Fluoride riboswitch aptamer (crcB RNA motif): a 66-nucleotide sequence from Paraburkholderia sp. DHOC27. Taxonomically the source falls in Paraburkholderia (Bacteria, Pseudomonadota, Betaproteobacteria, Burkholderiales). For this family Rfam cites "Fluoride ion encapsulation by Mg2+ ions and phosphates in a fluoride riboswitch" (Ren et al., Nature, 2012).

[Rfam]
RNA sequence: UUCAAUCAGGGAGAUGGCAUUCUCCUUAAUCGCUGCACGCUUGCAGCUAAUGAUGCCUACGAGUCC
Numbered sequence: 001u002u003c004a005a006u007c008a009g010g011g012a013g014a015u016g017g018c019a020u021u022c023u024c025c026u027u028a029a030u031c032g033c034u035g036c037a038c039g040c041u042u043g044c045a046g047c048u049a050a051u052g053a054u055g056c057c058u059a060c061g062a063g064u065c066c
Stems, first nucleotide, its partner, number of pairs: 010025004016057006032047006